[Rfam]
RNA sequence: UAGGGUACCUUGUGACCCUCUUUAGUUCAACCAAAUAAACUAAAAUUUUAAAAUAACACAACGUUUUAAAAAACUAGUUCAUUUGUUUGAACUAAGGAGAGUUAAAAGGUACCCUG
Numbered sequence: 001u002a003g004g005g006u007a008c009c010u011u012g013u014g015a016c017c018c019u020c021u022u023u024a025g026u027u028c029a030a031c032c033a034a035a036u037a038a039a040c041u042a043a044a045a046u047u048u049u050a051a052a053a054u055a056a057c058a059c060a061a062c063g064u065u066u067u068a069a070a071a072a073a074c075u076a077g078u079u080c081a082u083u084u085g086u087u088u089g090a091a092c093u094a095a096g097g098a099g100a101g102u103u104a105a106a107a108g109g110u111a112c113c114c115u116g
Base pairs, nucleotide, nucleotide: 002115003114004113005112006111007110008109009108010107011106013104014103015102016101018099019098020097021096022095023094024093025092026091027090028089029088030087032085033084034083035082036081038079039078040077041076042075

Source information:
Shown here is a 116-nucleotide RNA sequence from Brachypodium distachyon, a member of the family "MIR5070 microRNA precursor family". The family has 2 seed sequences and 266 matches in Rfam 15.1. NCBI's taxonomy places the organism under Eukaryota, Spermatophyta, Poales, Brachypodieae, Brachypodium. Its family is annotated with miRNA-mediated post-transcriptional gene silencing and RISC complex in the Gene Ontology. A search with the family's covariance model found it, with a score of 114 bits. Its Rfam clan is "MIR2863 microRNA precursor clan".